RNA sequence: GGUUAUGCCUGAAUUCACGGCAGCCCAGGCUGCUCAAUGCAUAUUUCUAUGGAGAACAUACCAUGGCAUUAAGUGCUGAAAAGAAAGCAGAAGUUGUUAAGCAGUAUCAACAGUCUGAA
Numbered sequence: 001g002g003u004u005a006u007g008c009c010u011g012a013a014u015u016c017a018c019g020g021c022a023g024c025c026c027a028g029g030c031u032g033c034u035c036a037a038u039g040c041a042u043a044u045u046u047c048u049a050u051g052g053a054g055a056a057c058a059u060a061c062c063a064u065g066g067c068a069u070u071a072a073g074u075g076c077u078g079a080a081a082a083g084a085a086a087g088c089a090g091a092a093g094u095u096g097u098u099a100a101g102c103a104g105u106a107u108c109a110a111c112a113g114u115c116u117g118a119a
Base pairs, nucleotide, nucleotide: 007030008029009028010027011026048073050071051070052069054067

Rfam assigns this 119-nucleotide RNA from Aestuariirhabdus litorea to the family "Ribosomal S15 leader". It scores 42 bits against the family's covariance model. Lineage of the source: Bacteria > Pseudomonadati > Gammaproteobacteria > Aestuariirhabdaceae > Aestuariirhabdus. The E. coli Ribosomal S15 gene 5' UTR can form two alternative structures. One that is a series of three hairpins, The other includes a pseudoknot. On this family, see Benard et al., Biochimie 1996: "Pseudoknot and translational control in the expression of the S15 ribosomal protein".